[Rfam]
RNA sequence: CGAGCGUAAUGACGAUAAAAAAGUUAAUUCCGAUUAUUUAUGAAGAAUAACCAACCUCCUACUCAUUCUGA
Numbered sequence: 001c002g003a004g005c006g007u008a009a010u011g012a013c014g015a016u017a018a019a020a021a022a023g024u025u026a027a028u029u030c031c032g033a034u035u036a037u038u039u040a041u042g043a044a045g046a047a048u049a050a051c052c053a054a055c056c057u058c059c060u061a062c063u064c065a066u067u068c069u070g071a
Stems, first nucleotide, its partner, number of pairs: 006066002009063001027048002031042001
Rfam assigns this 71-nucleotide sequence from Nicotiana tabacum to the family "Small nucleolar RNA Z105". The family's consensus secondary structure was predicted with CMfinder. By type it is a C/D-box small nucleolar RNA.